RNA sequence: UUACAAUUAAAGGAUAUUUCUUGCGACUCUAUAUGAAACGGAAAUAUCUUAUAAUUGUUUGGC
Numbered sequence: 001u002u003a004c005a006a007u008u009a010a011a012g013g014a015u016a017u018u019u020c021u022u023g024c025g026a027c028u029c030u031a032u033a034u035g036a037a038a039c040g041g042a043a044a045u046a047u048c049u050u051a052u053a054a055u056u057g058u059u060u061g062g063c
Stems, first nucleotide, its partner, number of pairs: 003058007012049010024035002
Rfam assigns this 63-nucleotide sequence from Megalops atlanticus to the family "mir-7552 microRNA precursor family". The family's consensus secondary structure was predicted with RNAalifold. The family has 4 seed sequences and 220 matches in Rfam 15.1.